[Rfam]
RNA sequence: CCCGCAACUAGACGGAAAGACCCCGUGGAGCUUUACUAUAACUUGAUAUUGAAAUUUGGUGUAACGUGUAGAGGAUAGCUGGGAGACAUUGAAGCAGUACCGCUAGGGACUGUGGAGUCAACCUUGGAAUACCAGCCUCGUUACAUUGACUUUCUAACUUGGACCCAUUAUCUGGGUUGAGGACAGUGUCUGGUGGGUAGUUUGACUGGGGCGGUCGCCUCCUAAAAUGUAACGGAGGCGCUCAAAGGUAUUCUCAGUAUGGUUGGAAAUCAUACAAAGAGCGCAAAGGUAGAAGAAUGCUUAACUGCGAGACUUACAAGUCGAACAGAUACGAAAGUAGGACUUAGUGAUCCGGCGGUCCCGAGUGGAAGGGCCGUCGCUCAACGGAUAAAAGUUACCCCGGGGAUAACAGGCUGAUCUCCCCCAAGAGUUCACAUCGACGGGGAGGUUUGGCACCUCGAUGUCGGCUCAUCGCAUCCUGGAGCUGAAGUCGGUUCCAAGGGUUGGGCUGUUCGCCCAUUAAAGCGGUACGCGAGCUGGGUUCAGAACGUCGUGAGACAGUUUGGUCCCUAUCUGUUGUGGGCGUA
Numbered sequence: 001c002c003c004g005c006a007a008c009u010a011g012a013c014g015g016a017a018a019g020a021c022c023c024c025g026u027g028g029a030g031c032u033u034u035a036c037u038a039u040a041a042c043u044u045g046a047u048a049u050u051g052a053a054a055u056u057u058g059g060u061g062u063a064a065c066g067u068g069u070a071g072a073g074g075a076u077a078g079c080u081g082g083g084a085g086a087c088a089u090u091g092a093a094g095c096a097g098u099a100c101c102g103c104u105a106g107g108g109a110c111u112g113u114g115g116a117g118u119c120a121a122c123c124u125u126g127g128a129a130u131a132c133c134a135g136c137c138u139c140g141u142u143a144c145a146u147u148g149a150c151u152u153u154c155u156a157a158c159u160u161g162g163a164c165c166c167a168u169u170a171u172c173u174g175g176g177u178u179g180a181g182g183a184c185a186g187u188g189u190c191u192g193g194u195g196g197g198u199a200g201u202u203u204g205a206c207u208g209g210g211g212c213g214g215u216c217g218c219c220u221c222c223u224a225a226a227a228u229g230u231a232a233c234g235g236a237g238g239c240g241c242u243c244a245a246a247g248g249u250a251u252u253c254u255c256a257g258u259a260u261g262g263u264u265g266g267a268a269a270u271c272a273u274a275c276a277a278a279g280a281g282c283g284c285a286a287a288g289g290u291a292g293a294a295g296a297a298u299g300c301u302u303a304a305c306u307g308c309g310a311g312a313c314u315u316a317c318a319a320g321u322c323g324a325a326c327a328g329a330u331a332c333g334a335a336a337g338u339a340g341g342a343c344u345u346a347g348u349g350a351u352c353c354g355g356c357g358g359u360c361c362c363g364a365g366u367g368g369a370a371g372g373g374c375c376g377u378c379g380c381u382c383a384a385c386g387g388a389u390a391a392a393a394g395u396u397a398c399c400c401c402g403g404g405g406a407u408a409a410c411a412g413g414c415u416g417a418u419c420u421c422c423c424c425c426a427a428g429a430g431u432u433c434a435c436a437u438c439g440a441c442g443g444g445g446a447g448g449u450u451u452g453g454c455a456c457c458u459c460g461a462u463g464u465c466g467g468c469u470c471a472u473c474g475c476a477u478c479c480u481g482g483a484g485c486u487g488a489a490g491u492c493g494g495u496u497c498c499a500a501g502g503g504u505u506g507g508g509c510u511g512u513u514c515g516c517c518c519a520u521u522a523a524a525g526c527g528g529u530a531c532g533c534g535a536g537c538u539g540g541g542u543u544c545a546g547a548a549c550g551u552c553g554u555g556a557g558a559c560a561g562u563u564u565g566g567u568c569c570c571u572a573u574c575u576g577u578u579g580u581g582g583g584c585g586u587a
Stems, first nucleotide, its partner, number of pairs: 001583008010575003014570002022404004027400002029396005035201004042193002045190004051154004056149011068137001078136005085119003094113005100107002158181003162178006204216004217239006240385001242342002248300006254280002257275006281290002305328003311322003330339003353379007361372002413454003417451001418448007428438002465540001466538004470532001471529005478503002481498006505519005546564004550559003
This 587-nucleotide part of an RNA from Mesoplasma syrphidae belongs to the Rfam family "Bacterial large subunit ribosomal RNA". The match comes from Rfam's covariance-model search (2856 bits). The family's consensus secondary structure is taken from published work. Rfam 15.1 lists 51,934 matches to the family in 10,816 species.